[Rfam]
RNA sequence: AAAGAGGAUUCCGAAAAUCUUUAAGAGUAGGAU
Numbered sequence: 001a002a003a004g005a006g007g008a009u010u011c012c013g014a015a016a017a018u019c020u021u022u023a024a025g026a027g028u029a030g031g032a033u
Stems, first nucleotide, its partner, number of pairs: 002021004010032003
A member of the RNA family "DUF805b RNA", 33 nucleotides long. The sequence is in the family's curated seed alignment. The family is grouped with related families in Rfam's "DUF805 clan".